[Rfam]
RNA sequence: UGUCGGGUGGCGUGCAGGAAUACAAUACCCGUUAGGGAAAUACUGCAGGCGUUUUCUUUUGUUAACGUUUCGACCCACCCGAUCAAUUCUCG
Numbered sequence: 001u002g003u004c005g006g007g008u009g010g011c012g013u014g015c016a017g018g019a020a021u022a023c024a025a026u027a028c029c030c031g032u033u034a035g036g037g038a039a040a041u042a043c044u045g046c047a048g049g050c051g052u053u054u055u056c057u058u059u060u061g062u063u064a065a066c067g068u069u070u071c072g073a074c075c076c077a078c079c080c081g082a083u084c085a086a087u088u089c090u091c092g
Stems, first nucleotide, its partner, number of pairs: 002083008013047004019041001028037003048069006
A member of the RNA family "sRNA-Xcc1" from Cysteiniphilum litorale, 92 nucleotides long. Rfam 15.1 lists 421 matches to the family in 299 species. NCBI's taxonomy places the organism under Bacteria, Pseudomonadati, Gammaproteobacteria, Thiotrichales, Cysteiniphilum. By type it is a small RNA. A reference for the family is Wengelnik et al. (1996), "HrpG, a key hrp regulatory protein of Xanthomonas campestris pv. vesicatoria is homologous to two-component response regulators", Mol Plant Microbe Interact.